[Rfam]
RNA sequence: UCGCGUUGUGCCUUGGCACUGGGAGAAUUCACAGGAGUUGUUUUGUAUACCCGUGAAUUUCCUGAUGCCUCAGUAGAACGCGA
Dot-bracket structure: ..(((((.((....((((.((((.((..((((.(................).)))).))).))).))))....)).)))))..
The family of this 83-nucleotide RNA sequence from Eumeta japonica is "mir-263 microRNA precursor family".
Lineage of the source: Eukaryota > Pancrustacea > Allotriocarida > Hexapoda > Eumeta.
A reference for the family is Li et al. (2009), "Direct sequencing and expression analysis of a large number of miRNAs in Aedes aegypti and a multi-species survey of novel mosquito miRNAs", BMC Genomics.
Rfam links the family to the GO terms miRNA-mediated post-transcriptional gene silencing and RISC complex.